[Rfam]
RNA sequence: CCCCAUAUGUUACGGGUUUCGAGGCAUCGUAGCCGAUUUUAAACUGGUUCGUUGUCGACGAAACCUGCACAAUAUGAGG
Numbered sequence: 001c002c003c004c005a006u007a008u009g010u011u012a013c014g015g016g017u018u019u020c021g022a023g024g025c026a027u028c029g030u031a032g033c034c035g036a037u038u039u040u041a042a043a044c045u046g047g048u049u050c051g052u053u054g055u056c057g058a059c060g061a062a063a064c065c066u067g068c069a070c071a072a073u074a075u076g077a078g079g
Stems, first nucleotide, its partner, number of pairs: 001079002004076003013067009031049004

Record summary
The record is a 79-nucleotide RNA from Ignelater luminosus, which matches "mir-981 microRNA precursor family" in Rfam. The literature on the family includes a 2010 paper in BMC Genomics by Legeai et al., "Bioinformatic prediction, deep sequencing of microRNAs and expression analysis during phenotypic plasticity in the pea aphid, Acyrthosiphon pisum". Pairs were carried over by alignment from the consensus structure, which was predicted with RNAalifold. It scores 68 bits against the family's covariance model. NCBI's taxonomy places the organism under Eukaryota, Panarthropoda, Eumetabola, Coleoptera, Ignelater.